Shown here is a 76-nucleotide sequence, a member of the family "chrB-a RNA".
Rfam's curators put it in the seed alignment.
By type it is a cis-regulatory element.
The base pairs follow the family's consensus structure, which is taken from published work.

[Rfam]
RNA sequence: GGCAUGGGGAUUGCGAUCUCCCCACGAGGCGACAUGCUGAAGAAUCGCGUCCCGGUUAGCGCAAGGACGCAUCGUG
Numbered sequence: 001g002g003c004a005u006g007g008g009g010a011u012u013g014c015g016a017u018c019u020c021c022c023c024a025c026g027a028g029g030c031g032a033c034a035u036g037c038u039g040a041a042g043a044a045u046c047g048c049g050u051c052c053c054g055g056u057u058a059g060c061g062c063a064a065g066g067a068c069g070c071a072u073c074g075u076g
Base pairs, nucleotide, nucleotide: 005024006023007022008021009020010019047070048069049068050067051066052065
Dot-bracket structure: ....((((((........))))))......................((((((............))))))......